[Rfam]
Nucleotides: 129
Stems, first nucleotide, its partner, number of pairs: 011114004019030002033108005042048002049094003057072004075088004
Number, partner (000 for none) and nucleotide at each position: 001000a002000u003000c004000u005000g006000a007000a008000c009000a010000a011114u012113g013112c014111c015000g016000a017000a018000u019030c020029u021000c022000c023000a024000u025000u026000u027000g028000g029020a030019g031000u032000a033108c034107g035106g036105g037104g038000g039000a040000u041000a042048u043047a044000u045000u046000u047043u048042g049094g050093g051092g052000u053000g054000a055000a056000a057072c058071u059070u060069a061000u062000u063000u064000u065000u066000a067000u068000a069060u070059a071058a072057g073000u074000a075088g076087g077086g078085u079000u080000c081000c082000u083000c084000a085078a086077u087076c088075c089000u090000a091000a092051c093050c094049c095000g096000u097000c098000a099000a100000c101000u102000a103000a104037c105036c106035u107034c108033g109000g110000a111014g112013g113012c114011a115000a116000a117000a118000c119000g120000a121000g122000g123000a124000g125000g126000a127000a128000a129000u